[Rfam]
terC RNA: a 58-nucleotide RNA from Microvirga vignae. The family's consensus secondary structure is taken from published work.
RNA sequence: UAGCCAGGCCGGGCCCCUCUGGUCGCUCUCCUUUGAGCGGCGAUGUCGGACUGGAUGA
Numbered sequence: 001u002a003g004c005c006a007g008g009c010c011g012g013g014c015c016c017c018u019c020u021g022g023u024c025g026c027u028c029u030c031c032u033u034u035g036a037g038c039g040g041c042g043a044u045g046u047c048g049g050a051c052u053g054g055a056u057g058a
Base pairs, nucleotide, nucleotide: 006052007051009049010048011047012046022041023040024039025038026037027036028035
Notes: The organism belongs to Microvirga, within Bacteria. A search with the family's covariance model found it, with a score of 51 bits. By type it is a cis-regulatory element.